Eukaryotic large subunit ribosomal RNA: a 493-nucleotide part of an RNA from Sterkiella histriomuscorum. The base pairs follow the family's consensus structure, which is taken from published work. NCBI's taxonomy places the organism under Eukaryota, Sar, Intramacronucleata, Oxytrichidae, Sterkiella. It is one of the family's seed sequences.
RNA sequence: CCCUCCGAAGUUUCCCUCAGGAUAGCUGGGACAAAUACGCAGUUUUAUUAGGUAAAGCGAAUGAUUAGAGGCCUCGGGGAUGCAAUGUCCUCGACCUAUUCUCAAACUUUAAAUUGGUAAGAACCCUGGCCUUUCUUAAUUGAGGCAUGGGGGCUCAAUGCGUGUCCCAAGUGGGCCAUUUUUGGUAAGCAGAACUGGCGAUGAGGGAUGCUCCUAACGUCGAGUUAAGGUGCCCAACUGCACGCUCAUCAGAUACUACAAAGGGUGUUGGUUCAUCCAGACAGCAGGACGGUGGCCAUGGAAGUCGGAACCCGCUAAGGAGUGUGUAACAACUCACCUGCCGAAUGGACUAGCCCCGAAAAUGGAUGGCGCUAAAGCGUGCGACCGAUACUCGACCAUUGCAGCGAGAGUGAGGCUGCAAUGAGUAGGAGGGCGUGAGCGUUGUUGCGAAGCCUCUGGCGUGAGCCUGGGUUGAACAGCGUUUAGUGCAGAU
Numbered sequence: 001c002c003c004u005c006c007g008a009a010g011u012u013u014c015c016c017u018c019a020g021g022a023u024a025g026c027u028g029g030g031a032c033a034a035a036u037a038c039g040c041a042g043u044u045u046u047a048u049u050a051g052g053u054a055a056a057g058c059g060a061a062u063g064a065u066u067a068g069a070g071g072c073c074u075c076g077g078g079g080a081u082g083c084a085a086u087g088u089c090c091u092c093g094a095c096c097u098a099u100u101c102u103c104a105a106a107c108u109u110u111a112a113a114u115u116g117g118u119a120a121g122a123a124c125c126c127u128g129g130c131c132u133u134u135c136u137u138a139a140u141u142g143a144g145g146c147a148u149g150g151g152g153g154c155u156c157a158a159u160g161c162g163u164g165u166c167c168c169a170a171g172u173g174g175g176c177c178a179u180u181u182u183u184g185g186u187a188a189g190c191a192g193a194a195c196u197g198g199c200g201a202u203g204a205g206g207g208a209u210g211c212u213c214c215u216a217a218c219g220u221c222g223a224g225u226u227a228a229g230g231u232g233c234c235c236a237a238c239u240g241c242a243c244g245c246u247c248a249u250c251a252g253a254u255a256c257u258a259c260a261a262a263g264g265g266u267g268u269u270g271g272u273u274c275a276u277c278c279a280g281a282c283a284g285c286a287g288g289a290c291g292g293u294g295g296c297c298a299u300g301g302a303a304g305u306c307g308g309a310a311c312c313c314g315c316u317a318a319g320g321a322g323u324g325u326g327u328a329a330c331a332a333c334u335c336a337c338c339u340g341c342c343g344a345a346u347g348g349a350c351u352a353g354c355c356c357c358g359a360a361a362a363u364g365g366a367u368g369g370c371g372c373u374a375a376a377g378c379g380u381g382c383g384a385c386c387g388a389u390a391c392u393c394g395a396c397c398a399u400u401g402c403a404g405c406g407a408g409a410g411u412g413a414g415g416c417u418g419c420a421a422u423g424a425g426u427a428g429g430a431g432g433g434c435g436u437g438a439g440c441g442u443u444g445u446u447g448c449g450a451a452g453c454c455u456c457u458g459g460c461g462u463g464a465g466c467c468u469g470g471g472u473u474g475a476a477c478a479g480c481g482u483u484u485a486g487u488g489c490a491g492a493u
Base pairs, nucleotide, nucleotide: 001433002432003431004430005429006428011024013022014021015020027169028168029167030166031165032164033163043122044121045120046119047118048117049116050115055110056108057107062104063103064102067099069097070096071095074094075093076092077091078090079089081087124151125150126149129146130145131144132143175199176198177197178196180194181193182192183191184190204215205214206213219396220395221394222393223392225390229386230385231384238383240382243379244378245377263357264356265355267354268353269352270351271350272349273348274347275346276345284341285340286339287338288337290314291313292312296308297307315319320335324333325332397423398422399421400420401419402418403417404416405415434488436485437484438483439482440481441480442479443478444477445476452472453471458467459466460465